[Rfam]
RNA sequence: UCCGCAGCGCGUGUUUCAGAACGAUGGCACGGAAGCUCGCGCCCUUGAGCCGGGCGGUGCGGAUGUACUGCGCCGUCAUCACCUCGGUCAUCGAGGCGCGGGUCAUCCGGGCGAUGUAACCCAUGCCGUAGAACGUCAGCGCCAGAACAGGCAGGGUGAAGUUGGCAAAGGUAAUCCCCUUC
Numbered sequence: 001u002c003c004g005c006a007g008c009g010c011g012u013g014u015u016u017c018a019g020a021a022c023g024a025u026g027g028c029a030c031g032g033a034a035g036c037u038c039g040c041g042c043c044c045u046u047g048a049g050c051c052g053g054g055c056g057g058u059g060c061g062g063a064u065g066u067a068c069u070g071c072g073c074c075g076u077c078a079u080c081a082c083c084u085c086g087g088u089c090a091u092c093g094a095g096g097c098g099c100g101g102g103u104c105a106u107c108c109g110g111g112c113g114a115u116g117u118a119a120c121c122c123a124u125g126c127c128g129u130a131g132a133a134c135g136u137c138a139g140c141g142c143c144a145g146a147a148c149a150g151g152c153a154g155g156g157u158g159a160a161g162u163u164g165g166c167a168a169a170g171g172u173a174a175u176c177c178c179c180u181u182c
Stems, first nucleotide, its partner, number of pairs: 003141003007137001009136004014131002016128001019126001021124001031120001038113001040111001042109001046105003050101003054097001055075008082096005154178003